[Rfam]
Nucleotides: 358
Stems, first nucleotide, its partner, number of pairs: 001321003009318001011198004016192001018191003022085007030078002032074008045063007089185003092181003100174007107151002111147008122133003159166002203244006212238002217233004255317006263295014299306002323350003332343004
Number, partner (000 for none) and nucleotide at each position: 001321g002320g003319c004000c005000u006000a007000a008000a009318g010000c011198a012197u013196c014195c015000g016192u017000a018191g019190c020189c021000g022085g023084c024083c025082c026081a027080g028079u029000a030078a031077g032074u033073c034072c035071u036070c037069c038068g039067u040000u041000a042000a043000a044000u045063c046062c047061a048060a049059c050058g051057g052000c053000u054000c055000a056000a057051c058050c059049g060048u061047u062046g063045g064000g065000c066000u067039g068038c069037g070036g071035g072034g073033g074032a075000u076000a077031c078030u079028g080027c081026u082025g083024g084023g085022c086000u087000a088000g089185g090184g091183g092181a093180c094179g095000g096000g097000a098000g099000a100174g101173g102172c103171g104170a105169g106168g107151g108150g109000u110000a111147u112146u113145c114144c115143c116142g117141g118140g119000g120000u121000a122133g123132g124131g125000g126000u127000a128000a129000a130000a131124u132123c133122c134000a135000c136000u137000g138000a139000u140118c141117c142116c143115g144114g145113g146112a147111g148000g149000a150108c151107c152000a153000c154000c155000a156000g157000u158000g159166g160165c161000g162000a163000a164000g165160g166159c167000g168106c169105c170104u171103c172102g173101c174100u175000a176000g177000a178000a179094c180093g181092u182000g183091c184090c185089c186000g187000a188000c189020g190019g191018u192016g193000a194000g195014g196013g197012a198011u199000g200000a201000a202000a203244g204243c205242u206241g207240g208239g209000g210000g211000a212238g213237c214000g215000a216000a217233c218232c219231g220230g221000a222000u223000u224000a225000g226000a227000u228000a229000c230220c231219c232218g233217g234000g235000u236000a237213g238212u239208c240207c241206c242205a243204g244203c245000c246000g247000u248000a249000a250000a251000c252000g253000a254000u255317g256316u257315a258314g259313g260312c261000u262000c263295g264294g265293u266292g267291u268290u269289g270288g271287g272286c273285u274284g275283c276282c277000u278000c279000a280000g281000u282276g283275g284274c285273a286272g287271c288270c289269c290268a291267g292266u293265g294264c295263c296000g297000c298000a299306g300305g301000g302000a303000a304000g305300c306299c307000g308000u309000u310000a311000a312260g313259c314258c315257u316256a317255c318009c319003g320002c321001c322000u323350g324349g325348g326000g327000a328000g329000u330000a331000c332343g333342g334341c335340c336000g337000c338000a339000a340335g341334g342333c343332u344000g345000a346000a347000a348325c349324u350323u351000a352000a353000a354000g355000g356000a357000a358000u